This 249-nucleotide RNA sequence from Halopseudomonas xinjiangensis belongs to the Rfam family "PhrS". Gene Ontology term of the family: quorum sensing.
RNA sequence: AUCUUGAAUCGUGGACGAAUUCAGGAGGUCCCCGACAUGUUUAUCGACGAGACAGUUAUUGCUGGCGUUAUCACCGUAGGGUUGAUGAUUGCCUUCCUCAGCGGCUUUGCCGUGUUCAUCUGGCGCGACAGCCAGAAGCAGGGCAAGGCAUCCAGACGCCCCUGAUGCGCUGAGUUAUCCCUCUUUUCAACGUGCAUGGCUCGCAAGGCGUUUGGCGACCUCCCGAAAGGGUAGGUCGCUUUUUUUUUG
Numbered sequence: 001a002u003c004u005u006g007a008a009u010c011g012u013g014g015a016c017g018a019a020u021u022c023a024g025g026a027g028g029u030c031c032c033c034g035a036c037a038u039g040u041u042u043a044u045c046g047a048c049g050a051g052a053c054a055g056u057u058a059u060u061g062c063u064g065g066c067g068u069u070a071u072c073a074c075c076g077u078a079g080g081g082u083u084g085a086u087g088a089u090u091g092c093c094u095u096c097c098u099c100a101g102c103g104g105c106u107u108u109g110c111c112g113u114g115u116u117c118a119u120c121u122g123g124c125g126c127g128a129c130a131g132c133c134a135g136a137a138g139c140a141g142g143g144c145a146a147g148g149c150a151u152c153c154a155g156a157c158g159c160c161c162c163u164g165a166u167g168c169g170c171u172g173a174g175u176u177a178u179c180c181c182u183c184u185u186u187u188c189a190a191c192g193u194g195c196a197u198g199g200c201u202c203g204c205a206a207g208g209c210g211u212u213u214g215g216c217g218a219c220c221u222c223c224c225g226a227a228a229g230g231g232u233a234g235g236u237c238g239c240u241u242u243u244u245u246u247u248u249g
Base pairs, nucleotide, nucleotide: 002103004101005100053061054060079090080089082087174209175208176207214240215239216238217237218236219235220234221233